[Rfam]
RNA: Na+ riboswitch aptamer (DUF1646)
Organism: Ruminiclostridium herbifermentans
RNA sequence: GGUUGGGCGGAAUUACAAAAUUGUUUUCGCUUUCAAGAAAAUUUAAGUCUUCUGGGGAGGGAAGCU
Numbered sequence: 001g002g003u004u005g006g007g008c009g010g011a012a013u014u015a016c017a018a019a020a021u022u023g024u025u026u027u028c029g030c031u032u033u034c035a036a037g038a039a040a041a042u043u044u045a046a047g048u049c050u051u052c053u054g055g056g057g058a059g060g061g062a063a064g065c066u
Stems, first nucleotide, its partner, number of pairs: 003036003006031006047066001049064005